The record is a 412-nucleotide RNA from Catenaria anguillulae, which matches "RNase MRP" in Rfam. Rfam classes the family as a ribozyme. Clan: RNaseP clan. The literature on the family includes a 2005 paper in Biochem Biophys Res Commun by Walker and Avis, "Secondary structure probing of the human RNase MRP RNA reveals the potential for MRP RNA subsets". RNase MRP is an enzymatically active ribonucleoprotein with two distinct roles in eukaryotes. In mitochondria it plays a direct role in the initiation of mitochondrial DNA replication.
RNA sequence: GCCCAUCCCGCCAGAACUGCUAUCCGAGCCAUACGUACAGACACCUCAUUGUGUGUCCACCGAUGCCAUGUAUUCAAACCACAUGCAACCGUUUCAAGCUCGGGGGAAAGUCCUCGGACCGCUCUUCAUGGAAAGCUGUGCGCAUUGUCAGCGUCAAGAUGCACGUCCCCGCUCGUCUGCCGUCGUUUUGCCGCAUGGCCUUGCCCUCGACCAGCAAGUAGGCCGUGUGGGCGGGCGCACACUUGAUCGCAAGAUGGGUGUGUCGUGGACGUGGAUCCUGUUGUCAUCAAUUCGCUAGUCUCUCUUGGCUGGUCAGUCACAGGCAUGCAGUUGCCCAUCGGUUUUGUUUGUCCUUUCGGGGUCAAUAAGACUUGGGUGGGUUCCUUGACGAGGCUCACUCGGCGGGUAUGGG
Numbered sequence: 001g002c003c004c005a006u007c008c009c010g011c012c013a014g015a016a017c018u019g020c021u022a023u024c025c026g027a028g029c030c031a032u033a034c035g036u037a038c039a040g041a042c043a044c045c046u047c048a049u050u051g052u053g054u055g056u057c058c059a060c061c062g063a064u065g066c067c068a069u070g071u072a073u074u075c076a077a078a079c080c081a082c083a084u085g086c087a088a089c090c091g092u093u094u095c096a097a098g099c100u101c102g103g104g105g106g107a108a109a110g111u112c113c114u115c116g117g118a119c120c121g122c123u124c125u126u127c128a129u130g131g132a133a134a135g136c137u138g139u140g141c142g143c144a145u146u147g148u149c150a151g152c153g154u155c156a157a158g159a160u161g162c163a164c165g166u167c168c169c170c171g172c173u174c175g176u177c178u179g180c181c182g183u184c185g186u187u188u189u190g191c192c193g194c195a196u197g198g199c200c201u202u203g204c205c206c207u208c209g210a211c212c213a214g215c216a217a218g219u220a221g222g223c224c225g226u227g228u229g230g231g232c233g234g235g236c237g238c239a240c241a242c243u244u245g246a247u248c249g250c251a252a253g254a255u256g257g258g259u260g261u262g263u264c265g266u267g268g269a270c271g272u273g274g275a276u277c278c279u280g281u282u283g284u285c286a287u288c289a290a291u292u293c294g295c296u297a298g299u300c301u302c303u304c305u306u307g308g309c310u311g312g313u314c315a316g317u318c319a320c321a322g323g324c325a326u327g328c329a330g331u332u333g334c335c336c337a338u339c340g341g342u343u344u345u346g347u348u349u350g351u352c353c354u355u356u357c358g359g360g361g362u363c364a365a366u367a368a369g370a371c372u373u374g375g376g377u378g379g380g381u382u383c384c385u386u387g388a389c390g391a392g393g394c395u396c397a398c399u400c401g402g403c404g405g406g407u408a409u410g411g412g
Stems, first nucleotide, its partner, number of pairs: 002412005008405005015332006023104007109395002112393004127140004200218005221285003227281005238273003249270001256266001258264001334380006